[Rfam]
Overview:
A member of the RNA family "tRNA" from Frankia nepalensis, 73 nucleotides long. The match comes from Rfam's covariance-model search (62 bits).

RNA sequence: ACCCCUCUAGCUCAGUGGAAAGAGCGCCCGGCCGCGACCCGGGAGGCCGCAGGUUCGACUCCUGUGAGGGGUA
Number, nucleotide and partner (000 for none) at each position: 001a072002c071003c070004c069005c068006u067007c066008u000009a000010g025011c024012u023013c022014a000015g000016u000017g000018g000019a000020a000021a000022g013023a012024g011025c010026g000027c043028c042029c041030g040031g039032c000033c000034g000035c000036g000037a000038c000039c031040c030041g029042g028043g027044a000045g000046g000047c000048c000049g065050c064051a063052g062053g061054u000055u000056c000057g000058a000059c000060u000061c053062c052063u051064g050065u049066g007067a006068g005069g004070g003071g002072u001073a000